[Rfam]
RNA sequence: AGGUCAUUUCAAAGAUGGCUCAUGUGGCUGUGAGACCAAGAACUCUUAAUGCUGUUACCAAAGUUUGCAAUAGGAUGUGAGAGCACUCAGUAGUGCUAUGUUUCUCUGGGGAGAUAUUAAU
Numbered sequence: 001a002g003g004u005c006a007u008u009u010c011a012a013a014g015a016u017g018g019c020u021c022a023u024g025u026g027g028c029u030g031u032g033a034g035a036c037c038a039a040g041a042a043c044u045c046u047u048a049a050u051g052c053u054g055u056u057a058c059c060a061a062a063g064u065u066u067g068c069a070a071u072a073g074g075a076u077g078u079g080a081g082a083g084c085a086c087u088c089a090g091u092a093g094u095g096c097u098a099u100g101u102u103u104c105u106c107u108g109g110g111g112a113g114a115u116a117u118u119a120a121u
Stems, first nucleotide, its partner, number of pairs: 002059003006055002014047002017044002020041002023039001026037002065114002068111001072107003080099001082097006
Dot-bracket structure: .(((.((......((.((.((.(..((........)).))).)).))......)).))).....((.(...(((.....(.((((((....)))))).).....)))...).)).......